[Rfam]
RNA: Small nucleolar RNA snoR26
Organism: Nelumbo nucifera
RNA sequence: AGAGCAUCAGUGAUGUAUGACAUCCUUAUGUUAUCCUUGCACUUCGAUUGUUAGUGAAGAAACUUAAUGGGGACAGUGCAGUCUGAGAUGCUC
Number, nucleotide and partner (000 for none) at each position: 001a000002g093003a092004g091005c090006a089007u088008c087009a000010g000011u000012g000013a000014u000015g000016u000017a000018u000019g000020a000021c000022a000023u000024c000025c000026u000027u000028a000029u000030g000031u000032u000033a000034u000035c000036c000037u000038u000039g000040c000041a000042c000043u000044u000045c000046g000047a000048u000049u000050g000051u000052u000053a000054g000055u000056g000057a000058a000059g000060a000061a000062a000063c000064u000065u000066a000067a000068u000069g000070g000071g000072g000073a000074c000075a000076g000077u000078g000079c000080a000081g000082u000083c000084u000085g000086a000087g008088a007089u006090g005091c004092u003093c002